[Rfam]
RNA sequence: AAGAACUUUGAGGACUGACGGAUAAUUGUGGGUUACCACAGUGGAUUCAAAGUUUUGUAGAGCCGACCGUCUGGGCAGCAUCG
Numbered sequence: 001a002a003g004a005a006c007u008u009u010g011a012g013g014a015c016u017g018a019c020g021g022a023u024a025a026u027u028g029u030g031g032g033u034u035a036c037c038a039c040a041g042u043g044g045a046u047u048c049a050a051a052g053u054u055u056u057g058u059a060g061a062g063c064c065g066a067c068c069g070u071c072u073g074g075g076c077a078g079c080a081u082c083g
Stems, first nucleotide, its partner, number of pairs: 003055010015043001017071005028039004062076003
RNA: ZMP/ZTP riboswitch aptamer (pfl RNA motif)